[Rfam]
RNA: mir-24 microRNA precursor family
Organism: Canis lupus
RNA sequence: GGUGCCUACUGAGCUGAUAUCAGUUCUCAUUGUACACACUGGCUCAGUUCAGCAGGAACAGG
Number, nucleotide and partner (000 for none) at each position: 001g000002g059003u058004g000005c056006c055007u054008a000009c052010u051011g050012a049013g048014c047015u046016g045017a044018u000019a000020u042021c041022a040023g039024u038025u000026c000027u000028c000029a000030u000031u000032g000033u000034a000035c000036a000037c000038a024039c023040u022041g021042g020043c000044u017045c016046a015047g014048u013049u012050c011051a010052g009053c000054a007055g006056g005057a000058a003059c002060a000061g000062g000